[Rfam]
RNA sequence: CCGGGCCCUGUGAGCUUCCCUUUGUCAUCCUAUGCCUGAGAGUUCCCUGGAGGCUGGGACGGUGAAGGGACGCCUACGCGGCCCCCAG
Number, nucleotide and partner (000 for none) at each position: 001c000002c000003g000004g000005g000006c000007c000008c000009u000010g000011u000012g000013a000014g000015c000016u000017u070018c069019c068020c067021u066022u065023u000024g063025u062026c000027a000028u059029c058030c057031u056032a055033u000034g054035c053036c052037u051038g000039a000040g000041a000042g000043u000044u000045c000046c000047c000048u000049g000050g000051a037052g036053g035054c034055u032056g031057g030058g029059a028060c000061g000062g025063u024064g000065a022066a021067g020068g019069g018070a017071c000072g000073c000074c000075u000076a000077c000078g000079c000080g000081g000082c000083c000084c000085c000086c000087a000088g000
Notes:
Rfam assigns this 88-nucleotide RNA sequence from Sphenodon punctatus to the family "mir-204 microRNA precursor family". Rfam links the family to the GO terms miRNA-mediated post-transcriptional gene silencing and RISC complex.